[Rfam]
Shown here is a 97-nucleotide RNA from [Eubacterium] infirmum, a member of the family "THF (Tetrahydrofolate) riboswitch aptamer". On this family, see Trausch and Batey, Chem Biol 2014: "A disconnect between high-affinity binding and efficient regulation by antifolates and purines in the tetrahydrofolate riboswitch".
RNA sequence: GUCAGAGUAGGAUUUGGCGCGUUAAGUGUCGCAGGAUGGGAGUUGUCUGCGAACGAAAGGAAUUUAUUCCUGCGGUGCCAAUUCCGCAUCCGCUGCC
Numbered sequence: 001g002u003c004a005g006a007g008u009a010g011g012a013u014u015u016g017g018c019g020c021g022u023u024a025a026g027u028g029u030c031g032c033a034g035g036a037u038g039g040g041a042g043u044u045g046u047c048u049g050c051g052a053a054c055g056a057a058a059g060g061a062a063u064u065u066a067u068u069c070c071u072g073c074g075g076u077g078c079c080a081a082u083u084c085c086g087c088a089u090c091c092g093c094u095g096c097c
Stems, first nucleotide, its partner, number of pairs: 001097001003095003010085003014081006020074003026054002029052007039091001040089001042087001058071004
NCBI's taxonomy places the organism under Bacteria, Bacillati, Bacillota, Clostridia, [Eubacterium] infirmum. It scores 83 bits against the family's covariance model.